[Rfam]
RNA: Guanidine-I riboswitch aptamer
RNA sequence: UAAGCAGACCUCUAGGGUUCCGGUCCAUUUUUGGGUGCGGCGUCUGGUCCGAGAGAGGUCGGUUCCUAGGUUUUCCGGUGGGAAGAUCCAGUGAAUUACACGGCGGGAUAAAAGCCCGGGAGAG
Numbered sequence: 001u002a003a004g005c006a007g008a009c010c011u012c013u014a015g016g017g018u019u020c021c022g023g024u025c026c027a028u029u030u031u032u033g034g035g036u037g038c039g040g041c042g043u044c045u046g047g048u049c050c051g052a053g054a055g056a057g058g059u060c061g062g063u064u065c066c067u068a069g070g071u072u073u074u075c076c077g078g079u080g081g082g083a084a085g086a087u088c089c090a091g092u093g094a095a096u097u098a099c100a101c102g103g104c105g106g107g108a109u110a111a112a113a114g115c116c117c118g119g120g121a122g123a124g
Stems, first nucleotide, its partner, number of pairs: 007060006015050002020047002022044001023041003026037003061097005099119001101122001105117003